The record is a 116-nucleotide sequence from Shewanella sediminis, which matches "Ribosomal S15 leader" in Rfam. Rfam's curators write: The E. coli Ribosomal S15 gene 5' UTR can form two alternative structures. One that is a series of three hairpins, The other includes a pseudoknot. This structure causes translational regulation of the S15 protein. The alignment of this family contains only the final two hairpins which are conserved in other species, and also includes the complete region that forms the alternate structures. It is one of the family's seed sequences. NCBI's taxonomy places the organism under Bacteria, Pseudomonadota, Gammaproteobacteria, Alteromonadales, Shewanella sediminis. For this family Rfam cites "Pseudoknot and translational control in the expression of the S15 ribosomal protein" (Benard et al., Biochimie, 1996).

[Rfam]
RNA sequence: CACUUUAGCUGAGUUAGUGAUUGGCUAAAGCUUAUUAAUGCAUUAUUUGGAGAGACAAAAUGUCACUAAAUGCUGAACAAACUGCAACAAUCCUGGCUGAAUUCGGUCGUAGUGAA
Numbered sequence: 001c002a003c004u005u006u007a008g009c010u011g012a013g014u015u016a017g018u019g020a021u022u023g024g025c026u027a028a029a030g031c032u033u034a035u036u037a038a039u040g041c042a043u044u045a046u047u048u049g050g051a052g053a054g055a056c057a058a059a060a061u062g063u064c065a066c067u068a069a070a071u072g073c074u075g076a077a078c079a080a081a082c083u084g085c086a087a088c089a090a091u092c093c094u095g096g097c098u099g100a101a102u103u104c105g106g107u108c109g110u111a112g113u114g115a116a
Stems, first nucleotide, its partner, number of pairs: 007026006046070005052064001